[Rfam]
RNA sequence: GAUAAAUGCAUCUUGCAGGCGAGACCCUAUCAAUAUUGCCUCUGCUUUUCUCACUGUUUAUGGAGUAGUGCAAUAUUGCUUAUAGGGUCUUGACUUUAAGGCUAA
Dot-bracket structure: ....................(((((((((((((((((((..(((((................).)))).)))))))))...))))))))))..............